This 47-nucleotide RNA sequence from Bacilli bacterium VT-13-104 belongs to the Rfam family "PreQ1 (pre queuosine) riboswitch aptamer". The match comes from Rfam's covariance-model search (51 bits). This family is a bacterial riboswitch that binds to the metabolite preQ1, an intermediate in the biosynthesis of the modified nucleoside queuosine from GTP. One example of this riboswitch is located in the leader of the Bacillus subtilis ykvJKLM (queCDEF) operon which encodes four genes necessary for queuosine production. PreQ1 binding to the riboswitch aptamer is thought to induce premature transcription termination within the leader to down-regulate expression of these genes. On this family, see Flemmich et al., Nat Commun 2021: "A natural riboswitch scaffold with self-methylation activity".

[Rfam]
RNA sequence: GCAGGAGAGGUUCGAAAUUCCAUCCCUCUAUAAAAAACUAAGGAGCU
Dot-bracket structure: .....(((((.....[........))))).........]........